Record summary:
Small nucleolar RNA J33: an 81-nucleotide sequence from Ziziphus jujuba. The base pairs follow the family's consensus structure. The match comes from Rfam's covariance-model search (95 bits). The family's RNA type in Rfam is C/D-box small nucleolar RNA. Lineage of the source: Eukaryota > Magnoliopsida > Mesangiospermae > Paliureae > Ziziphus jujuba. The literature on the family includes a 2003 paper in Nucleic Acids Res by Chen et al., "The high diversity of snoRNAs in plants: identification and comparative study of 120 snoRNA genes from Oryza sativa".
RNA sequence: CUGUGAGGGGAAUGAUGUACUAUUAUAGAGCCCUCAAGAUGCUUGCCUUCCUUGAUUCUGCCUCUGAGAUGGACAUUAAGG
Number, nucleotide and partner (000 for none) at each position: 001c081002u080003g000004u078005g077006a076007g000008g000009g000010g000011a000012a000013u000014g000015a000016u000017g000018u000019a000020c000021u000022a000023u000024u000025a000026u000027a000028g000029a000030g000031c000032c000033c000034u000035c000036a000037a000038g000039a000040u000041g000042c000043u000044u000045g000046c000047c000048u000049u000050c000051c000052u000053u000054g000055a000056u000057u000058c000059u000060g000061c000062c000063u000064c000065u000066g000067a000068g000069a000070u000071g000072g000073a000074c000075a000076u006077u005078a004079a000080g002081g001